[Rfam]
RNA sequence: ACCUGUAACGGGUCUCCGUAAGAAAGCGCUCCGUCAUCCCCACUCAACUUCCUGUCUAUACUUCAGCAGGAGCCCGGUUCGAGUUCUGUGGUGUCCUUUAAUUCACUCACUUGGGUAACCAGUGAUGCUGGAGGGACCUAAGCAAUGGAUACAACUUGAUGAGGGAAGCAAUUCCGCAAUCGGGUAUCCACCAUGGAACGGCGGCGCCGGAUUACUUCUAUUGGGGUUGGAAGUCGAGCGGCGGGCUGGUGUGUUGACUUACAUU
Numbered sequence: 001a002c003c004u005g006u007a008a009c010g011g012g013u014c015u016c017c018g019u020a021a022g023a024a025a026g027c028g029c030u031c032c033g034u035c036a037u038c039c040c041c042a043c044u045c046a047a048c049u050u051c052c053u054g055u056c057u058a059u060a061c062u063u064c065a066g067c068a069g070g071a072g073c074c075c076g077g078u079u080c081g082a083g084u085u086c087u088g089u090g091g092u093g094u095c096c097u098u099u100a101a102u103u104c105a106c107u108c109a110c111u112u113g114g115g116u117a118a119c120c121a122g123u124g125a126u127g128c129u130g131g132a133g134g135g136a137c138c139u140a141a142g143c144a145a146u147g148g149a150u151a152c153a154a155c156u157u158g159a160u161g162a163g164g165g166a167a168g169c170a171a172u173u174c175c176g177c178a179a180u181c182g183g184g185u186a187u188c189c190a191c192c193a194u195g196g197a198a199c200g201g202c203g204g205c206g207c208c209g210g211a212u213u214a215c216u217u218c219u220a221u222u223g224g225g226g227u228u229g230g231a232a233g234u235c236g237a238g239c240g241g242c243g244g245g246c247u248g249g250u251g252u253g254u255u256g257a258c259u260u261a262c263a264u265u
Base pairs, nucleotide, nucleotide: 001013002012003011018262019261020260021259022258026254027253028252029251033250034249035248036247037245038244039243040241041240043238044236046234049231050230051229060227061226062225064223065222066221068219069218070217071216072215074210075209076208077207078206079204080203081202083199084198085197086196087195088194089193090192091191093137095135096134097133098132099131101129104127105126107125108124109123110122111121113120114119138142146190147189148188149187150186151185152184156183157182158181159180160179165174166173167172

Source information
The record is a 265-nucleotide RNA sequence from Alternaria burnsii, which matches "Fungal signal recognition particle RNA" in Rfam. It is annotated as a non-coding RNA gene. Taxonomically the source falls in Alternaria sect. Alternaria (Eukaryota, Pleosporales, Pleosporineae, Pleosporaceae). Gene Ontology terms of the family: signal recognition particle, endoplasmic reticulum targeting, signal recognition particle, plasma membrane targeting and SRP-dependent cotranslational protein targeting to membrane, signal sequence recognition. The base pairs follow the family's consensus structure, which is taken from published work. A search with the family's covariance model found it, with a score of 136 bits.